Rfam assigns this 47-nucleotide RNA sequence from Alca torda to the family "Histone 3' UTR stem-loop". The match comes from Rfam's covariance-model search (43 bits). Pairs were carried over by alignment from the consensus structure, which is taken from published work. The family's RNA type in Rfam is cis-regulatory element.
RNA sequence: CCAAAGGCUCUUUUAAGAGCCACUACAUGGACAAAAAAAAGAGCUGU
Numbered sequence: 001c002c003a004a005a006g007g008c009u010c011u012u013u014u015a016a017g018a019g020c021c022a023c024u025a026c027a028u029g030g031a032c033a034a035a036a037a038a039a040a041g042a043g044c045u046g047u
Stems, first nucleotide, its partner, number of pairs: 006021006
About the family: The mRNAs of metazoan histone genes lack a poly-A tail. 3' end processing occurs at a site between a highly conserved stem-loop (modelled by this family) and a purine rich region around 20 nts downstream (the histone downstream element, or HDE). The stem-loop is bound by a 31 kDa stem-loop binding protein (SLBP - also termed the histone hairpin binding protein, or HBP). Together with U7 snRNA binding of the HDE, SLBP binding nucleate s the formation of the processing complex. Rfam 15.1 lists 44,596 matches to the family in 976 species.